[Rfam]
Nucleotides: 076
Base pairs, nucleotide, nucleotide: 012044014043015042016041017040020076021075022074023073024072025071026070027039028038029037048065049064050063052061
Number, partner (000 for none) and nucleotide at each position: 001000g002000u003000u004000g005000c006000a007000u008000g009000u010000u011000u012044g013000a014043g015042g016041c017040c018000a019000u020076a021075g022074c023073a024072g025071a026070a027039g028038u029037g030000u031000u032000c033000g034000u035000g036000g037029u038028g039027u040017g041016g042015u043014c044012c045000u046000g047000u048065c049064a050063g051000a052061u053000u054000c055000u056000a057000a058000u059000a060000c061052a062000c063050c064049u065048g066000u067000a068000a069000a070026u071025u072024c073023u074022g075021u076020u
The record is a 76-nucleotide RNA sequence from Crocodylus porosus, which matches "Mammalian CPEB3 ribozyme" in Rfam. The base pairs follow the family's consensus structure, which is taken from published work.